[Rfam]
RNA sequence: AUGAGCUUUCGGGGCGGGGUGGAAGUCCCCACCGGCGGUGUUGGGAGUUCGCUCCCUAAGCCCGCGAGCCGAAGCGAUCAGGGGCCCUUAGGCCCUUCGCGGAAGCAGGAACCGGUGUGAUUCCGGUGCCGACGGUCAUAGUCCGGAUGGUAGAAAGCUUGG
Number, nucleotide and partner (000 for none) at each position: 001a000002u000003g160004a159005g158006c157007u156008u155009u154010c153011g000012g000013g000014g000015c000016g000017g029018g028019g027020u000021g000022g000023a000024a000025g000026u000027c019028c018029c017030c000031a142032c141033c131034g130035g065036c064037g063038g062039u000040g000041u000042u000043g000044g000045g000046a000047g000048u000049u000050c000051g000052c000053u000054c000055c000056c000057u000058a000059a000060g129061c128062c038063c037064g036065c035066g000067a000068g000069c000070c105071g000072a000073a000074g000075c000076g000077a000078u000079c000080a000081g000082g000083g000084g000085c000086c000087c000088u000089u000090a000091g000092g000093c000094c000095c000096u000097u000098c000099g000100c000101g000102g000103a000104a000105g070106c000107a000108g000109g000110a000111a127112c126113c125114g124115g123116u000117g000118u000119g000120a000121u000122u000123c115124c114125g113126g112127u111128g061129c060130c034131g033132a000133c145134g144135g143136u000137c000138a000139u000140a000141g032142u031143c135144c134145g133146g000147a000148u000149g000150g000151u000152a000153g010154a009155a008156a007157g006158c005159u004160u003161g000162g000
RNA: FMN riboswitch aptamer (RFN element)
Organism: Parvularcula mediterranea